The family of this 78-nucleotide RNA sequence from Trichobilharzia regenti is "mir-3492 microRNA precursor family". The family has 2 seed sequences and 21,496 matches in Rfam 15.1. The match comes from Rfam's covariance-model search (52 bits).
[Rfam]
RNA sequence: AGCUUUUUGUAUUCAAGCUGAGAUUUCAUCAGUAAUCGGUUCACUUAAACUGAUGCAACUGCUCGAAUAAGUGAAGCA
Numbered sequence: 001a002g003c004u005u006u007u008u009g010u011a012u013u014c015a016a017g018c019u020g021a022g023a024u025u026u027c028a029u030c031a032g033u034a035a036u037c038g039g040u041u042c043a044c045u046u047a048a049a050c051u052g053a054u055g056c057a058a059c060u061g062c063u064c065g066a067a068u069a070a071g072u073g074a075a076g077c078a
Base pairs, nucleotide, nucleotide: 002077003076004075005074006073008071010069011068012067013066016063017062021060022059024058025057027055028054029053030052
The base pairs follow the family's consensus structure, which was predicted with RNAalifold. Its family is annotated with miRNA-mediated post-transcriptional gene silencing and RISC complex in the Gene Ontology.